Source information
MIR168 microRNA precursor family: a 171-nucleotide RNA from Solanum lycopersicum. A search with the family's covariance model found it, with a score of 85 bits. The family has 10 seed sequences and 518 matches in Rfam 15.1. The organism belongs to Solanum subgen. Lycopersicon, within Eukaryota. Its family is annotated with RISC complex and miRNA-mediated post-transcriptional gene silencing in the Gene Ontology.
RNA sequence: GUUGCGGUGGUUUCUCAUUCGCUUGGUGCAGGUCGGGACCUACCUCGCCGGCAACAAUGGCGGUAGCUGACGGCGACGGCAGCGUACCGGUAAAAAAGAAUCUUAUUUUUACAUGUUGUUGCGUAGUUUGGGUCCCGCCUUGCAUCAACUGAAUAGGAGACUGCGGUGAAU
Numbered sequence: 001g002u003u004g005c006g007g008u009g010g011u012u013u014c015u016c017a018u019u020c021g022c023u024u025g026g027u028g029c030a031g032g033u034c035g036g037g038a039c040c041u042a043c044c045u046c047g048c049c050g051g052c053a054a055c056a057a058u059g060g061c062g063g064u065a066g067c068u069g070a071c072g073g074c075g076a077c078g079g080c081a082g083c084g085u086a087c088c089g090g091u092a093a094a095a096a097a098g099a100a101u102c103u104u105a106u107u108u109u110u111a112c113a114u115g116u117u118g119u120u121g122c123g124u125a126g127u128u129u130g131g132g133u134c135c136c137g138c139c140u141u142g143c144a145u146c147a148a149c150u151g152a153a154u155a156g157g158a159g160a161c162u163g164c165g166g167u168g169a170a171u
Base pairs, nucleotide, nucleotide: 013158014157017154018153019152020151023148024147025146026145027144028143029142030141031140032139034137035136036135037134038133040131041130